Notes:
The record is a 134-nucleotide sequence from Theropithecus gelada, which matches "Small nucleolar RNA SNORA42/SNORA80 family" in Rfam. The source organism's lineage runs through Eukaryota, Amniota, Theria, Cercopithecoidea and Theropithecus. From the family's description: The members of this family belong to the H/ACA class of snoRNAs that guide the sites of modification of uridines to pseudouridines. Human ACA42 (SNORA42) was cloned from HeLa cells by immunoprecipitation with anti-GAR1 antibody. Rfam links the family to the GO terms RNA processing and nucleolus.

RNA sequence: GCAUGGUAAUGGGUUCAUUGGGGGCCCUUCUCUGUGGGCUUUAUAGCGUACCCAAGCCAGUGUAAACUUCAGCCUUGAACGAUUGCCCACCCACCUUCCCAUGGACUGUGAGUACUGAAGGGGGUUGCCCAUUG
Numbered sequence: 001g002c003a004u005g006g007u008a009a010u011g012g013g014u015u016c017a018u019u020g021g022g023g024g025c026c027c028u029u030c031u032c033u034g035u036g037g038g039c040u041u042u043a044u045a046g047c048g049u050a051c052c053c054a055a056g057c058c059a060g061u062g063u064a065a066a067c068u069u070c071a072g073c074c075u076u077g078a079a080c081g082a083u084u085g086c087c088c089a090c091c092c093a094c095c096u097u098c099c100c101a102u103g104g105a106c107u108g109u110g111a112g113u114a115c116u117g118a119a120g121g122g123g124g125u126u127g128c129c130c131a132u133u134g
Base pairs, nucleotide, nucleotide: 001057002056004054005052006051007050008049015046017044018043022041023040024039025037026036070127071126072125073124074123075122082116086112088108089107091104092103